[Rfam]
RNA sequence: GCCCCAGCUAGGCCCGCGAACCGAAGAGCGGGUUUCCCUGCCCGCCUGCUGGGGCACCUUUUUUUCAGGG
Numbered sequence: 001g002c003c004c005c006a007g008c009u010a011g012g013c014c015c016g017c018g019a020a021c022c023g024a025a026g027a028g029c030g031g032g033u034u035u036c037c038c039u040g041c042c043c044g045c046c047u048g049c050u051g052g053g054g055c056a057c058c059u060u061u062u063u064u065u066c067a068g069g070g
Stems, first nucleotide, its partner, number of pairs: 001055008011022002028045005036070005
RNA: int-alpA RNA